Shown here is a 367-nucleotide RNA from Vanderwaltozyma polyspora, a member of the family "Small nucleolar RNA snR37".

RNA sequence: AUCAUCAGUAGUGGUUAAUACUAUCUCAAGAUAAUAUUAAUUACAAUUUUUUAUAGAAACCUAAAGUUUUGAUCAUUUGUGUUCUUAAGUUAGGAUACCUCUUCGGGGGUAUUCUGAUUAGUUAAUACUGGAACUCUGAGUGAUUGAUUCAUUACAUAUAACCCAUAGCUGAGUGGCAUCUGACAGACCCUAAACAAGUCUGGCACAGAUAUCAUUUCGUUUCCGGUUUCUUAGAUCAUAAUCUCCUAUGAGGAAGGUCCUCGAAUAGUCAAACUAUUCGAGGAAAGAUACAUGUUUAUCAGAGGAUUGUAUAAUGCAAUCUGAGAGUUUGUAAUCAGUCGUGUCUCUUCUUCAUGGUAGGACAAUU
Numbered sequence: 001a002u003c004a005u006c007a008g009u010a011g012u013g014g015u016u017a018a019u020a021c022u023a024u025c026u027c028a029a030g031a032u033a034a035u036a037u038u039a040a041u042u043a044c045a046a047u048u049u050u051u052u053a054u055a056g057a058a059a060c061c062u063a064a065a066g067u068u069u070u071g072a073u074c075a076u077u078u079g080u081g082u083u084c085u086u087a088a089g090u091u092a093g094g095a096u097a098c099c100u101c102u103u104c105g106g107g108g109g110u111a112u113u114c115u116g117a118u119u120a121g122u123u124a125a126u127a128c129u130g131g132a133a134c135u136c137u138g139a140g141u142g143a144u145u146g147a148u149u150c151a152u153u154a155c156a157u158a159u160a161a162c163c164c165a166u167a168g169c170u171g172a173g174u175g176g177c178a179u180c181u182g183a184c185a186g187a188c189c190c191u192a193a194a195c196a197a198g199u200c201u202g203g204c205a206c207a208g209a210u211a212u213c214a215u216u217u218c219g220u221u222u223c224c225g226g227u228u229u230c231u232u233a234g235a236u237c238a239u240a241a242u243c244u245c246c247u248a249u250g251a252g253g254a255a256g257g258u259c260c261u262c263g264a265a266u267a268g269u270c271a272a273a274c275u276a277u278u279c280g281a282g283g284a285a286a287g288a289u290a291c292a293u294g295u296u297u298a299u300c301a302g303a304g305g306a307u308u309g310u311a312u313a314a315u316g317c318a319a320u321c322u323g324a325g326a327g328u329u330u331g332u333a334a335u336c337a338g339u340c341g342u343g344u345c346u347c348u349u350c351u352u353c354a355u356g357g358u359a360g361g362a363c364a365a366u367u
Stems, first nucleotide, its partner, number of pairs: 008049001010047001012045002014041007022033004055231007066150001069147010079136001081134005088119007096111006120129003171217006180208003184202005243360002246357002249354008258284011286346003291343004297333002300331004304322007